Shown here is a 97-nucleotide RNA sequence from Rhodamnia argentea, a member of the family "Small nucleolar RNA R64/Z200 family". The match comes from Rfam's covariance-model search (70 bits). Rfam links the family to the GO terms RNA processing and nucleolus.
RNA sequence: CUUCUGCAGUGAUGAUUUAUGAAUGAGAAGUAAUGCACAUGUCAGACUUCAGAGAUUUUCAUCGAUGAGAAGAUACGUUCGACGCUCUGAGCAGAAG
Numbered sequence: 001c002u003u004c005u006g007c008a009g010u011g012a013u014g015a016u017u018u019a020u021g022a023a024u025g026a027g028a029a030g031u032a033a034u035g036c037a038c039a040u041g042u043c044a045g046a047c048u049u050c051a052g053a054g055a056u057u058u059u060c061a062u063c064g065a066u067g068a069g070a071a072g073a074u075a076c077g078u079u080c081g082a083c084g085c086u087c088u089g090a091g092c093a094g095a096a097g
Stems, first nucleotide, its partner, number of pairs: 001097007054063003
On this family, see Galardi et al., Mol Cell Biol 2002: "Purified box C/D snoRNPs are able to reproduce site-specific 2'-O-methylation of target RNA in vitro".